The family of this 130-nucleotide RNA sequence from Nelumbo nucifera is "MIR162_1 microRNA precursor family". NCBI's taxonomy places the organism under Eukaryota, Streptophytina, Tracheophyta, Euphyllophyta, Nelumbo.
RNA sequence: UGUGGUGUCUCCGGGCGCAGCGGUUUAUCGAUCUCUUCCUGGACUGGUUGUUUGAACGGAUUGCUUGCCAAUUGAAGUGAAAGACAAAACAGGAAUCGGUCGAUAAACCUCUGCAUCCGGUGCUCACUCU
Numbered sequence: 001u002g003u004g005g006u007g008u009c010u011c012c013g014g015g016c017g018c019a020g021c022g023g024u025u026u027a028u029c030g031a032u033c034u035c036u037u038c039c040u041g042g043a044c045u046g047g048u049u050g051u052u053u054g055a056a057c058g059g060a061u062u063g064c065u066u067g068c069c070a071a072u073u074g075a076a077g078u079g080a081a082a083g084a085c086a087a088a089a090c091a092g093g094a095a096u097c098g099g100u101c102g103a104u105a106a107a108c109c110u111c112u113g114c115a116u117c118c119g120g121u122g123c124u125c126a127c128u129c130u
Stems, first nucleotide, its partner, number of pairs: 013118003018113003022109004027104007036095006